[Rfam]
RNA sequence: UGUGCGCCGUGGUCAAGUGCUCAGACUUCCGUGGUGGCUGCUUAUGCACCACGGGUAUUUGAGCAUGUGCUAUGGUGUCUA
Numbered sequence: 001u002g003u004g005c006g007c008c009g010u011g012g013u014c015a016a017g018u019g020c021u022c023a024g025a026c027u028u029c030c031g032u033g034g035u036g037g038c039u040g041c042u043u044a045u046g047c048a049c050c051a052c053g054g055g056u057a058u059u060u061g062a063g064c065a066u067g068u069g070c071u072a073u074g075g076u077g078u079c080u081a
Stems, first nucleotide, its partner, number of pairs: 004078009014069002017066009027055003034052004039048003
RNA: mir-105 microRNA precursor family
Organism: Heterocephalus glaber